Shown here is a 165-nucleotide sequence, a member of the family "FuFi-1 RNA". Rfam classes the family as a small RNA. Rfam's curators put it in the seed alignment.
RNA sequence: UUCGUCAGCUAACGGGCUAUCAAUCCGCUGAACUAAAACAGCAUAAGUGACGAAGUAUCUCAUAGAAACAGUCAGUGUCGUUGAUUGUGGUGAAAACCUGCAAGAUAUAUAAAGUAUAAAAAUUUAGCAAAUAGCUGUUAGAAACGACACUUCUAACAGUUUUUU
Dot-bracket structure: (((((((...................((((..{{{{{.)))).....)))))))((((((.......((((((([[[[[[[)))))))(((....)))....))))))..............}}}}}...(.(((((((((((]]]]]]]))))))))))).)..